[Rfam]
RNA sequence: AUGAUAGCUUUGAUGAAGAGUAAGUAGCAUGAUGAAAGUUUUUAGAGAGCUGACGGUUGGUGAAAGUCAGUAGCGGACAUGAUGUGAAUGGACUUCUGAGCUCUGGUUUGAAAAGGAAUUUCCUUAGUAGGAUGCAGCGAUUAGGCCUUAUCGUUACACAAGGCGCCCAUUCGGAAUUUGGAUGGAUUAAGUGAACUGUUUUUGCAGUUAAUCAAGGUGGUACCACGGGUCUCUCGUCCUUGUC
Numbered sequence: 001a002u003g004a005u006a007g008c009u010u011u012g013a014u015g016a017a018g019a020g021u022a023a024g025u026a027g028c029a030u031g032a033u034g035a036a037a038g039u040u041u042u043u044a045g046a047g048a049g050c051u052g053a054c055g056g057u058u059g060g061u062g063a064a065a066g067u068c069a070g071u072a073g074c075g076g077a078c079a080u081g082a083u084g085u086g087a088a089u090g091g092a093c094u095u096c097u098g099a100g101c102u103c104u105g106g107u108u109u110g111a112a113a114a115g116g117a118a119u120u121u122c123c124u125u126a127g128u129a130g131g132a133u134g135c136a137g138c139g140a141u142u143a144g145g146c147c148u149u150a151u152c153g154u155u156a157c158a159c160a161a162g163g164c165g166c167c168c169a170u171u172c173g174g175a176a177u178u179u180g181g182a183u184g185g186a187u188u189a190a191g192u193g194a195a196c197u198g199u200u201u202u203u204g205c206a207g208u209u210a211a212u213c214a215a216g217g218u219g220g221u222a223c224c225a226c227g228g229g230u231c232u233c234u235c236g237u238c239c240u241u242g243u244c
Stems, first nucleotide, its partner, number of pairs: 007101002015096004027085004032080001038074003049071006104136002106133004138153003194209006214241004225237005
RNA: T-box leader